[Rfam]
RNA sequence: GUCUAGCUAUGUAACGAGAGCUUGUGACCUGAGUAGGGACAAUAAGAUGGUGGGACACUGGUUCGAUGCCAGGUCGGUUCUGGUGUGGCAUGUUUUUGAGCUGCCCCGCCCAAGCUGAGAGUUAUCUGUUUGAUUUGAGCGAAGGCUUGAGCCUGGUGGGUGCUAAAGUUGGAAGGUAAUGGGUCAGGCUGGUUUUACAUAGCAGCGACUACUUUCGGUUCUCAGCAGUGGAUGGAUAAUGGCUCGACGCCACACAGUCCCAUUAUGGCCUGCUGGUUCAUUCUCAGCUAAACCACCAUUA
Numbered sequence: 001g002u003c004u005a006g007c008u009a010u011g012u013a014a015c016g017a018g019a020g021c022u023u024g025u026g027a028c029c030u031g032a033g034u035a036g037g038g039a040c041a042a043u044a045a046g047a048u049g050g051u052g053g054g055a056c057a058c059u060g061g062u063u064c065g066a067u068g069c070c071a072g073g074u075c076g077g078u079u080c081u082g083g084u085g086u087g088g089c090a091u092g093u094u095u096u097u098g099a100g101c102u103g104c105c106c107c108g109c110c111c112a113a114g115c116u117g118a119g120a121g122u123u124a125u126c127u128g129u130u131u132g133a134u135u136u137g138a139g140c141g142a143a144g145g146c147u148u149g150a151g152c153c154u155g156g157u158g159g160g161u162g163c164u165a166a167a168g169u170u171g172g173a174a175g176g177u178a179a180u181g182g183g184u185c186a187g188g189c190u191g192g193u194u195u196u197a198c199a200u201a202g203c204a205g206c207g208a209c210u211a212c213u214u215u216c217g218g219u220u221c222u223c224a225g226c227a228g229u230g231g232a233u234g235g236a237u238a239a240u241g242g243c244u245c246g247a248c249g250c251c252a253c254a255c256a257g258u259c260c261c262a263u264u265a266u267g268g269c270c271u272g273c274u275g276g277u278u279c280a281u282u283c284u285c286a287g288c289u290a291a292a293c294c295a296c297c298a299u300u301a
Stems, first nucleotide, its partner, number of pairs: 001040003005022004010017001028037003046300008057289001058287003061283001065279002069275001070272006076261002080257003085253004096247008105235002108233001110231003114226009123162008132153001134151007163168001170217006183206002190199002
The family of this 301-nucleotide RNA sequence from Brassica carinata is "Plant signal recognition particle RNA". The source organism's lineage runs through Eukaryota, Embryophyta, rosids, malvids and Brassica.